Shown here is a 74-nucleotide sequence from Flavobacterium cerinum, a member of the family "tRNA". Rfam links the family to the GO term triplet codon-amino acid adaptor activity. It is annotated as a transfer RNA. It scores 66 bits against the family's covariance model. Transfer RNA (tRNA) molecules are approximately 80 nucleotides in length.

RNA sequence: GGUCUCAUGGCUCAACUGGAUAGAGCACUGGAUUUCGGCUCCAGCGGUUGUGGGUUCGAAUCCCUCUGAGACCA
Numbered sequence: 001g002g003u004c005u006c007a008u009g010g011c012u013c014a015a016c017u018g019g020a021u022a023g024a025g026c027a028c029u030g031g032a033u034u035u036c037g038g039c040u041c042c043a044g045c046g047g048u049u050g051u052g053g054g055u056u057c058g059a060a061u062c063c064c065u066c067u068g069a070g071a072c073c074a
Stems, first nucleotide, its partner, number of pairs: 001073007010026004028044005050066001052064003